[Rfam]
RNA: Small nucleolar RNA SNORD115
RNA sequence: GGGUCAGUGAUGAGAACGCAUUGUCUUGAAGAGAAAUGGUGACCAAAGUAACGUUCAGUAACGUUCAGUGUGAGUGAUCUGAGGCCC
Numbered sequence: 001g002g003g004u005c006a007g008u009g010a011u012g013a014g015a016a017c018g019c020a021u022u023g024u025c026u027u028g029a030a031g032a033g034a035a036a037u038g039g040u041g042a043c044c045a046a047a048g049u050a051a052c053g054u055u056c057a058g059u060a061a062c063g064u065u066c067a068g069u070g071u072g073a074g075u076g077a078u079c080u081g082a083g084g085c086c087c
Stems, first nucleotide, its partner, number of pairs: 001087004005081002